[Rfam]
RNA sequence: UUAUUUAGUUAUUCAUUCCACACACUUGCCGACACGUUAUCCUGGGUGCCCAAGAGGUUCUUUUGAAUUUUAAGGGUUGGAUAAUGGGGCAGGUGGAGGCUCAAC
Numbered sequence: 001u002u003a004u005u006u007a008g009u010u011a012u013u014c015a016u017u018c019c020a021c022a023c024a025c026u027u028g029c030c031g032a033c034a035c036g037u038u039a040u041c042c043u044g045g046g047u048g049c050c051c052a053a054g055a056g057g058u059u060c061u062u063u064u065g066a067a068u069u070u071u072a073a074g075g076g077u078u079g080g081a082u083a084a085u086g087g088g089g090c091a092g093g094u095g096g097a098g099g100c101u102c103a104a105c
Stems, first nucleotide, its partner, number of pairs: 023095008035086008048077004
t44 RNA: a 105-nucleotide RNA sequence from Candidatus Berkiella cookevillensis. From the family's description: This family consists of a number of bacterial RNA genes of between 135 and 170 bases in length. The t44 gene has been identified in several species of enteric bacteria but homologs have also been identified in Pseudomonas and Coxiella species. The t44 gene is found between the map and rpsB genes in all species in the full alignment apart from Shigella flexneri. By type it is a small RNA. On this family, see Tjaden et al., Nucleic Acids Res 2002: "Transcriptome analysis of Escherichia coli using high-density oligonucleotide probe arrays".